[Rfam]
RNA sequence: UUCGGCCUCGCUGUAUUUCCUAUGCAGCCCCCUGCAAGCCGUCGCCGACGCAUUCCUACCCGAAUCCUUCGAUACAUAAGCAGGCGAUCAACUCGCCUUCUCAACGGCGCGGGC
Numbered sequence: 001u002u003c004g005g006c007c008u009c010g011c012u013g014u015a016u017u018u019c020c021u022a023u024g025c026a027g028c029c030c031c032c033u034g035c036a037a038g039c040c041g042u043c044g045c046c047g048a049c050g051c052a053u054u055c056c057u058a059c060c061c062g063a064a065u066c067c068u069u070c071g072a073u074a075c076a077u078a079a080g081c082a083g084g085c086g087a088u089c090a091a092c093u094c095g096c097c098u099u100c101u102c103a104a105c106g107g108c109g110c111g112g113g114c
Stems, first nucleotide, its partner, number of pairs: 010028006038114002040111002043109005084096004
RNA: Pseudomon-Rho RNA